Rfam assigns this 88-nucleotide RNA sequence from Dendrobium catenatum to the family "Small nucleolar RNA snoR27". The family's consensus secondary structure was predicted with WAR. The source organism's lineage runs through Eukaryota, Tracheophyta, Orchidaceae, Dendrobieae and Dendrobium. The literature on the family includes a 2001 paper in RNA by Brown et al., "Multiple snoRNA gene clusters from Arabidopsis". By type it is a C/D-box small nucleolar RNA.

RNA sequence: UUUGGAUCAAUGAUGCAACCAUUUAAUUGUUAUCUUUCUGAAAUACCUAUAGUGGGUUGAAGACAACUACAAUAUAGUGAGAUCUAUA
Numbered sequence: 001u002u003u004g005g006a007u008c009a010a011u012g013a014u015g016c017a018a019c020c021a022u023u024u025a026a027u028u029g030u031u032a033u034c035u036u037u038c039u040g041a042a043a044u045a046c047c048u049a050u051a052g053u054g055g056g057u058u059g060a061a062g063a064c065a066a067c068u069a070c071a072a073u074a075u076a077g078u079g080a081g082a083u084c085u086a087u088a
Base pairs, nucleotide, nucleotide: 001088003086004085005084006083007082